[Rfam]
RNA sequence: UUACAAUUAAAGGAUAUUUCUGGUGACGAAGUGUUUCAGAAAUGUCCUUUAAUUGUUUGGC
Numbered sequence: 001u002u003a004c005a006a007u008u009a010a011a012g013g014a015u016a017u018u019u020c021u022g023g024u025g026a027c028g029a030a031g032u033g034u035u036u037c038a039g040a041a042a043u044g045u046c047c048u049u050u051a052a053u054u055g056u057u058u059g060g061c
Base pairs, nucleotide, nucleotide: 003056004055005054006053007052008051009050010049012047013046014045015044016043017042018041019040020039021038025034